[Rfam]
RNA sequence: AAUACCCGGUGUUGCAGGGAAAUAAAUGCGACAGCAUCACAACCGCAGAGUGGCUGCGGAAAUAAAAAUUAAAUCUAUGAUGGCAAAGAAAAGGAGAAC
Numbered sequence: 001a002a003u004a005c006c007c008g009g010u011g012u013u014g015c016a017g018g019g020a021a022a023u024a025a026a027u028g029c030g031a032c033a034g035c036a037u038c039a040c041a042a043c044c045g046c047a048g049a050g051u052g053g054c055u056g057c058g059g060a061a062a063u064a065a066a067a068a069u070u071a072a073a074u075c076u077a078u079g080a081u082g083g084c085a086a087a088g089a090a091a092a093g094g095a096g097a098a099c
Base pairs, nucleotide, nucleotide: 005019006018007017010033011032012031013030014029035082036081037080038079039078043059044058045057046056047055
The family of this 99-nucleotide RNA sequence is "GP20-a RNA".